[Rfam]
RNA sequence: UUAUAUAUACGUAUGUAAUUGCAGGGUUCUAAGCUUUACAAAGAAACCCAAUCGAAAGUUUUUAAAUAAGAAACUUUCGGUUGAGUUUCCCGUAAAGCUUAGAACCCCGCAAUUAUAUACGCAUAUAUAA
Numbered sequence: 001u002u003a004u005a006u007a008u009a010c011g012u013a014u015g016u017a018a019u020u021g022c023a024g025g026g027u028u029c030u031a032a033g034c035u036u037u038a039c040a041a042a043g044a045a046a047c048c049c050a051a052u053c054g055a056a057a058g059u060u061u062u063u064a065a066a067u068a069a070g071a072a073a074c075u076u077u078c079g080g081u082u083g084a085g086u087u088u089c090c091c092g093u094a095a096a097g098c099u100u101a102g103a104a105c106c107c108c109g110c111a112a113u114u115a116u117a118u119a120c121g122c123a124u125a126u127a128u129a130a
Base pairs, nucleotide, nucleotide: 001130002129003128004127005126006125007124008123010121011120012119013118014117015116016115017114018113019112020111021110022109024107025106027104028103029102030101031100032099033098034097035096036095037094038093039092070089071088072087073086074085075084076083

MIR9555 microRNA precursor family: a 130-nucleotide RNA sequence from Brassica napus. The source organism's lineage runs through Eukaryota, Embryophyta, Tracheophyta, Spermatophyta and Brassica. Rfam 15.1 lists 42 matches to the family in 5 species. A search with the family's covariance model found it, with a score of 121 bits. Pairs were carried over by alignment from the consensus structure, which was predicted with RNAalifold.